The record is a 112-nucleotide RNA from Staphylococcus saprophyticus, which matches "SAM riboswitch aptamer (S box leader)" in Rfam. The SAM riboswitch is found upstream of a number of genes which code for proteins involved in methionine or cysteine biosynthesis in Gram-positive bacteria. The SAM riboswitch acts at the level of transcription termination control. The predicted structure consists of a complex stem-loop region followed by a single stem loop terminator region. An alternative and mutually exclusive form involves bases in the 3' segment of helix 1 with those in the 5' region of helix 5 to form a structure termed the anti-terminator form. Taxonomically the source falls in Staphylococcus saprophyticus (Bacteria, Bacillati, Bacillota, Staphylococcaceae). The family's consensus secondary structure is taken from published work. Rfam's curators put it in the seed alignment.

RNA sequence: CUCUUAUCCUGAGUGGCGGAGGGACAUGGACCCAAUGAAGCCCAGCAACCUCUUCUUAAUUGAAGAAAGGUGCCAAACCGUUUGCAGACAAAUAGCGUCUGAACGAUAAGAG
Dot-bracket structure: ((((((((....(.(((...(((...[[[.)))......)))).(((.((((((........))))..)))))........]]](((((.......)))))...))))))))